Source information: tRNA: an 82-nucleotide sequence from Shewanella oneidensis. Rfam classes the family as a transfer RNA. Taxonomically the source falls in Shewanella oneidensis (Bacteria, Pseudomonadati, Gammaproteobacteria, Alteromonadales). Pairs were carried over by alignment from the consensus structure, which is taken from published work.
RNA sequence: GCGGGAAUGGUGAAAUUGGUAGACACGCCAGAUUUAGGUUCUGGUGCCGCAAGGUGUGAGAGUUCAAGUCUCUCUUCCCGUA
Dot-bracket structure: (((((((..(((...........))).(((((.......))))).............(((((.......)))))))))))).